About this RNA:
Bacterial small subunit ribosomal RNA: a 577-nucleotide part of an RNA from Desulfurivibrio alkaliphilus. The family is grouped with related families in Rfam's "SSU clan".
RNA sequence: AAACUGGAGAGUUUGAUCCUGGCUCAGAUUGAACGCUGGCGGCGUGCUUAACACAUGCAAGUCGAACGAGAAAGGGGCUUCGGCCCUGAGUAGAGUGGCGCACGGGUGAGUAACGCGUAAGUAACCUGCCCUUCUAUCUGGGAUAACAGUUCGAAAGGGCUGCUAAUACCGGAUAUUCUUGCCGGCCAUAAGGUUGGUAAGGAAAGGUGACCUCUUCUUGAAAGUUACCGUAGAGGGAGGGGCUUGCGUACCAUUAGCUAGUUGGUGGGGUAACGGCUUACCAAGGCGACGAUGGUUAGCGGGUUUGAGAGGAUGAUCCGCCACACUGGAACUGAAACACGGACCAGACUCCUACGGGAGGCAGCAGUGAGGAAUAUUGCGCAAUGGGGGCAACCCUGACGCAGCGACGCCGCGUGAGUGAAGAAGGCCUUCGGGUUGUAAAGCUCUGUCGGAAGGGAAGAACGGUUCAGGUGUUAAUACCAUCUGGAUUUGACGGUACCUUCAAAGGAAGCACCGGCUAACUCCGUGCCAGCAGCCGCGGUAAUACGGAGGGUGCGAGCGUUAAUCGGAAUUACUG
Numbered sequence: 001a002a003a004c005u006g007g008a009g010a011g012u013u014u015g016a017u018c019c020u021g022g023c024u025c026a027g028a029u030u031g032a033a034c035g036c037u038g039g040c041g042g043c044g045u046g047c048u049u050a051a052c053a054c055a056u057g058c059a060a061g062u063c064g065a066a067c068g069a070g071a072a073a074g075g076g077g078c079u080u081c082g083g084c085c086c087u088g089a090g091u092a093g094a095g096u097g098g099c100g101c102a103c104g105g106g107u108g109a110g111u112a113a114c115g116c117g118u119a120a121g122u123a124a125c126c127u128g129c130c131c132u133u134c135u136a137u138c139u140g141g142g143a144u145a146a147c148a149g150u151u152c153g154a155a156a157g158g159g160c161u162g163c164u165a166a167u168a169c170c171g172g173a174u175a176u177u178c179u180u181g182c183c184g185g186c187c188a189u190a191a192g193g194u195u196g197g198u199a200a201g202g203a204a205a206g207g208u209g210a211c212c213u214c215u216u217c218u219u220g221a222a223a224g225u226u227a228c229c230g231u232a233g234a235g236g237g238a239g240g241g242g243c244u245u246g247c248g249u250a251c252c253a254u255u256a257g258c259u260a261g262u263u264g265g266u267g268g269g270g271u272a273a274c275g276g277c278u279u280a281c282c283a284a285g286g287c288g289a290c291g292a293u294g295g296u297u298a299g300c301g302g303g304u305u306u307g308a309g310a311g312g313a314u315g316a317u318c319c320g321c322c323a324c325a326c327u328g329g330a331a332c333u334g335a336a337a338c339a340c341g342g343a344c345c346a347g348a349c350u351c352c353u354a355c356g357g358g359a360g361g362c363a364g365c366a367g368u369g370a371g372g373a374a375u376a377u378u379g380c381g382c383a384a385u386g387g388g389g390g391c392a393a394c395c396c397u398g399a400c401g402c403a404g405c406g407a408c409g410c411c412g413c414g415u416g417a418g419u420g421a422a423g424a425a426g427g428c429c430u431u432c433g434g435g436u437u438g439u440a441a442a443g444c445u446c447u448g449u450c451g452g453a454a455g456g457g458a459a460g461a462a463c464g465g466u467u468c469a470g471g472u473g474u475u476a477a478u479a480c481c482a483u484c485u486g487g488a489u490u491u492g493a494c495g496g497u498a499c500c501u502u503c504a505a506a507g508g509a510a511g512c513a514c515c516g517g518c519u520a521a522c523u524c525c526g527u528g529c530c531a532g533c534a535g536c537c538g539c540g541g542u543a544a545u546a547c548g549g550a551g552g553g554u555g556c557g558a559g560c561g562u563u564a565a566u567c568g569g570a571a572u573u574a575c576u577g
Stems, first nucleotide, its partner, number of pairs: 009025005027567004032563006039413006045406002047371001052369003056366003061099003066096002070091001074087005106324003115249008125241002130237007138172004147162006178201010206229006250296003257287003262284008299321004303314004326347004349360004377403001379402003385398005416446004426437004450508001452503005460494001466488007511556005522551005532539002
A search with the family's covariance model found it, with a score of 1598 bits.